[Rfam]
The record is a 367-nucleotide RNA sequence from an Actinomycetales bacterium, which matches "Bacterial RNase P class A" in Rfam. Lineage of the source: Bacteria > Bacillati > Actinomycetota > Actinomycetes > Actinomycetales. It is annotated as a ribozyme.

Nucleotides: 367
Base pairs, nucleotide, nucleotide: 001336002335003334004333005332006331007330009028010027011026012025013024014023015022016021037367038366039365040364041363042227043226044225045224049271050270051269052268054223055222056221057220058219059073060072061071062070063069074088075086076085077084078083089218090217094216095215096212097211098210111157112156113153114152115151117149118148119147121145122144123143165183166182167181168180169179170178185207186205187204188203189202190201191200192199193198231293232292233291234290241284242283246279262276263275264274265273266272300319302317303316304315305314306313307312
Number, partner (000 for none) and nucleotide at each position: 001336g002335g003334c004333g005332g006331c007330c008000g009028c010027g011026g012025c013024g014023g015022g016021c017000u018000c019000a020000g021016g022015c023014c024013c025012g026011u027010c028009g029000a030000g031000g032000a033000a034000a035000g036000u037367c038366c039365g040364g041363a042227c043226u044225c045224c046000a047000c048000c049271g050270a051269g052268c053000a054223c055222g056221g057220u058219g059073g060072u061071g062070g063069c064000c065000a066000a067000c068000a069063g070062c071061c072060a073059c074088c075086c076085a077084c078083g079000g080000u081000g082000a083078c084077g085076u086075g087000c088074g089218g090217g091000a092000c093000a094216g095215u096212g097211c098210c099000a100000c101000a102000g103000a104000g105000a106000a107000c108000a109000g110000a111157c112156c113153g114152c115151c116000a117149g118148c119147g120000g121145c122144c123143c124000c125000g126000g127000a128000a129000c130000c131000c132000u133000c134000a135000c136000g137000g138000g139000u140000g141000a142000c143123g144122g145121g146000g147119u148118g149117c150000g151115g152114g153113c154000a155000a156112g157111g158000g159000u160000g161000a162000a163000a164000c165183g166182g167181u168180g169179a170178g171000g172000u173000a174000a175000g176000a177000g178170c179169u180168c181167a182166c183165c184000a185207g186205c187204g188203a189202c190201g191200u192199c193198g194000g195000c196000g197000a198193c199192g200191g201190c202189g203188u204187c205186g206000g207185c208000u209000a210098g211097g212096u213000a214000a215095a216094c217090c218089c219058c220057a221056c222055c223054g224045g225044g226043a227042g228000c229000a230000a231293g232292a233291c234290c235000a236000a237000g238000a239000g240000g241284g242283c243000g244000c245000u246279c247000c248000g249000g250000c251000g252000c253000c254000u255000g256000c257000g258000c259000u260000g261000a262276c263275g264274g265273g266272c267000u268052g269051c270050u271049c272266g273265u274264c275263c276262g277000a278000u279246g280000u281000c282000a283242g284241c285000g286000g287000g288000u289000a290234g291233g292232u293231c294000g295000c296000u297000c298000g299000a300319g301000g302317c303316g304315c305314g306313c307312a308000g309000c310000g311000a312307u313306g314305c315304g316303u317302g318000a319300c320000c321000c322000a323000g324000a325000u326000g327000g328000a329000u330007g331006g332005u333004c334003g335002c336001c337000c338000c339000c340000c341000g342000g343000u344000c345000c346000u347000c348000g349000g350000a351000c352000c353000g354000g355000g356000g357000a358000c359000a360000g361000a362000a363041u364040c365039c366038g367037g